DUF805b RNA: a 33-nucleotide sequence. It is one of the family's seed sequences. The family's RNA type in Rfam is cis-regulatory element. The family is grouped with related families in Rfam's "DUF805 clan".
[Rfam]
RNA sequence: CCUGGGGAAGCCGAAAACCAAACAGAGUAGGCA
Numbered sequence: 001c002c003u004g005g006g007g008a009a010g011c012c013g014a015a016a017a018c019c020a021a022a023c024a025g026a027g028u029a030g031g032c033a
Stems, first nucleotide, its partner, number of pairs: 003020003010032003